[Rfam]
RNA sequence: GUGAAGUUGAUCACAAGCAAACAUAUACCCCUUUGUUUGACCGUGAAAAAUUUCUCCCAUCCCCUUUGUUCGAGAAAAGGCCUUGCAGUUUGUCACUGCAAGGCCUUU
Numbered sequence: 001g002u003g004a005a006g007u008u009g010a011u012c013a014c015a016a017g018c019a020a021a022c023a024u025a026u027a028c029c030c031c032u033u034u035g036u037u038u039g040a041c042c043g044u045g046a047a048a049a050a051u052u053u054c055u056c057c058c059a060u061c062c063c064c065u066u067u068g069u070u071c072g073a074g075a076a077a078a079g080g081c082c083u084u085g086c087a088g089u090u091u092g093u094c095a096c097u098g099c100a101a102g103g104c105c106u107u108u
Stems, first nucleotide, its partner, number of pairs: 003054006011046004018039006070075001079105011